The family of this 249-nucleotide RNA from Pelodiscus sinensis is "Small nucleolar RNA SNORD17".
It is annotated as a C/D-box small nucleolar RNA.
Its family is annotated with RNA processing and nucleolus in the Gene Ontology.
On this family, see Huttenhofer et al., EMBO J 2001: "RNomics: an experimental approach that identifies 201 candidates for novel, small, non-messenger RNAs in mouse".
Rfam's curators write: The snoRNA HBI-43 belongs to the C/D family of snoRNAs, guiding 2'O-ribose methylation at position U3797 of the 28S rRNA. Pseudouridylation in position U3797 is predicted to be guided by the H/ACA snoRNA ACA48.
The source organism's lineage runs through Eukaryota, Craniata, Gnathostomata, Sauria and Pelodiscus.
Rfam 15.1 lists 1,015 matches to the family in 568 species.

RNA sequence: GUGAAGUGAUGAAGAAGUUUAUCCAUUCUCUGAGUGCUGCUGCAUUGUCCUCCCUGCAGCGCCUAGAUUCCUGUUUUAGGGUCUUGGUGCUGUGCAGCCUCCAAGUACCCUCCAGUCUUUCAGUGUUCUACUGGGGGCUGCUGGAGGGGCUGGCUGGCUGUCUGCAGGAGCAGGACAGAGCCAGCAGAGGUGGAGACCCUCUGCAUGGGGGCUCCAUCUCAACCGAGACGAGAGAUGCUCUCUGAUCAC
Numbered sequence: 001g002u003g004a005a006g007u008g009a010u011g012a013a014g015a016a017g018u019u020u021a022u023c024c025a026u027u028c029u030c031u032g033a034g035u036g037c038u039g040c041u042g043c044a045u046u047g048u049c050c051u052c053c054c055u056g057c058a059g060c061g062c063c064u065a066g067a068u069u070c071c072u073g074u075u076u077u078a079g080g081g082u083c084u085u086g087g088u089g090c091u092g093u094g095c096a097g098c099c100u101c102c103a104a105g106u107a108c109c110c111u112c113c114a115g116u117c118u119u120u121c122a123g124u125g126u127u128c129u130a131c132u133g134g135g136g137g138c139u140g141c142u143g144g145a146g147g148g149g150c151u152g153g154c155u156g157g158c159u160g161u162c163u164g165c166a167g168g169a170g171c172a173g174g175a176c177a178g179a180g181c182c183a184g185c186a187g188a189g190g191u192g193g194a195g196a197c198c199c200u201c202u203g204c205a206u207g208g209g210g211g212c213u214c215c216a217u218c219u220c221a222a223c224c225g226a227g228a229c230g231a232g233a234g235a236u237g238c239u240c241u242c243u244g245a246u247c248a249c
Base pairs, nucleotide, nucleotide: 010248011247012246017241024234026232027231028230030227031226034223035222039185040184041183042182043180045178046177047176048175049174050173052170054168055167056165057164059091063087064086065085066083067082069081070080071079072078094161095160096159097158098157099156108146109144113140114139115138116137117136119135120134121133122132123131124130125129187220188219189218190217191216192215193214194213197210198209199208200207